[Rfam]
Nucleotides: 058
Stems, first nucleotide, its partner, number of pairs: 001054008010045003014041001020035005
Number, partner (000 for none) and nucleotide at each position: 001054g002053a003052a004051g005050g006049a007048g008047c009000u010045a011044u012043a013000c014041c015000a016000a017000a018000c019000c020035u021034c022033u023032u024031g025000a026000u027000a028000g029000a030000a031024c032023a033022a034021g035020a036000a037000u038000u039000u040000u041014g042000u043012u044011a045010u046000u047008g048007c049006u050005c051004c052003u053002u054001u055000a056000a057000c058000u